[Rfam]
RNA sequence: UCUCCGGUCAUUGGGGAGUAGUCGCCUUUUGCUUCGGCAAAAGGGCUUGCAUCAACACACUUGAUCCUUCGAUCAUGGUGCAAGCGGUUUCUAACCUGGCAAGACCUUUGACUACACAGCCUUCGGAUUGGUCGGGGAGAUGUGUAGUCAUUGUUCUUGUCCGGCCUAGGAAAUUC
Numbered sequence: 001u002c003u004c005c006g007g008u009c010a011u012u013g014g015g016g017a018g019u020a021g022u023c024g025c026c027u028u029u030u031g032c033u034u035c036g037g038c039a040a041a042a043g044g045g046c047u048u049g050c051a052u053c054a055a056c057a058c059a060c061u062u063g064a065u066c067c068u069u070c071g072a073u074c075a076u077g078g079u080g081c082a083a084g085c086g087g088u089u090u091c092u093a094a095c096c097u098g099g100c101a102a103g104a105c106c107u108u109u110g111a112c113u114a115c116a117c118a119g120c121c122u123u124c125g126g127a128u129u130g131g132u133c134g135g136g137g138a139g140a141u142g143u144g145u146a147g148u149c150a151u152u153g154u155u156c157u158u159g160u161c162c163g164g165c166c167u168a169g170g171a172a173a174u175u176c
Stems, first nucleotide, its partner, number of pairs: 026043003045085010062075005086175007
The family of this 176-nucleotide RNA from Rugosibacter aromaticivorans is "Manganese Mn2+ riboswitch aptamer (yybP-ykoY)".
From the family's description: This RNA was originally discovered in E. coli during a large scale screen and was named SraF. The family was later found to exist upstream of related families of protein genes in many bacteria, including the the yybP and ykoK genes in B. subtilis.
The pairing is the family consensus, mapped onto this sequence.
Lineage of the source: Bacteria > Pseudomonadota > Betaproteobacteria > Nitrosomonadales > Rugosibacter.
The literature on the family includes a 2015 paper in Mol Cell by Price et al., "Mn(2+)-sensing mechanisms of yybP-ykoY orphan riboswitches".